A member of the RNA family "mir-451 microRNA precursor family" from Macaca mulatta, 71 nucleotides long. Lineage of the source: Eukaryota > Metazoa > Mammalia > Catarrhini > Macaca.
[Rfam]
RNA sequence: UUGGGAAUGGCAAGGAAACCGUUACCAUUACUGAGUUUAGUAAUGGUAAGGGUUCUCUUGCUAUAUCCAGA
Numbered sequence: 001u002u003g004g005g006a007a008u009g010g011c012a013a014g015g016a017a018a019c020c021g022u023u024a025c026c027a028u029u030a031c032u033g034a035g036u037u038u039a040g041u042a043a044u045g046g047u048a049a050g051g052g053u054u055c056u057c058u059u060g061c062u063a064u065a066u067c068c069a070g071a
Base pairs, nucleotide, nucleotide: 007064008063009062011060012059013058017054018053019052020051022049023048024047025046026045027044028043029042030041031040032039033038